[Rfam]
Overview: Rfam assigns this 53-nucleotide RNA from Vigna angularis to the family "Plastid-atpF group II-D1 intron". From the family's description: Plastid atpF is a non-coding RNA (ncRNA) recognised in plastids. For this family Rfam cites "Retrograde signaling in plants: A critical review focusing on the GUN pathway and beyond" (Richter et al., Plant Commun, 2023). Rfam links the family to the GO term Group II intron splicing. The match comes from Rfam's covariance-model search (53 bits).
RNA sequence: UAUAUUUUUUUCGAUAUAAAACACUCAUGUCGAUAAAAAAAAAUGGCUUGAAU
Numbered sequence: 001u002a003u004a005u006u007u008u009u010u011u012c013g014a015u016a017u018a019a020a021a022c023a024c025u026c027a028u029g030u031c032g033a034u035a036a037a038a039a040a041a042a043a044u045g046g047c048u049u050g051a052a053u
Base pairs, nucleotide, nucleotide: 011033012032013031014030015029016028017027